[Rfam]
RNA sequence: GAUAACAAUAGUUAUGUCUUUAUGGACGUGUAACGAUUCUUGUGGAUAUGAUUGCUUGAACUCAGGAACAUCUAAGGGACUGAGUUGCA
Number, nucleotide and partner (000 for none) at each position: 001g000002a000003u087004a086005a085006c084007a000008a000009u000010a000011g000012u000013u000014a000015u000016g000017u000018c000019u000020u000021u000022a000023u000024g000025g000026a000027c000028g000029u000030g000031u000032a000033a000034c000035g000036a000037u000038u000039c000040u000041u000042g000043u000044g000045g000046a000047u000048a000049u000050g000051a000052u000053u000054g000055c000056u000057u000058g000059a000060a000061c000062u000063c000064a000065g000066g000067a000068a000069c000070a000071u000072c000073u000074a000075a000076g000077g000078g000079a000080c000081u000082g000083a000084g006085u005086u004087g003088c000089a000
A member of the RNA family "Small nucleolar RNA SNORD25" from Panicum virgatum, 89 nucleotides long.
A search with the family's covariance model found it, with a score of 62 bits.
Gene Ontology terms of the family: nucleolus and RNA processing.
For this family Rfam cites "Identification of 10 novel snoRNA gene clusters from Arabidopsis thaliana" (Qu et al., Nucleic Acids Res, 2001).
The base pairs follow the family's consensus structure, which was predicted with PFOLD.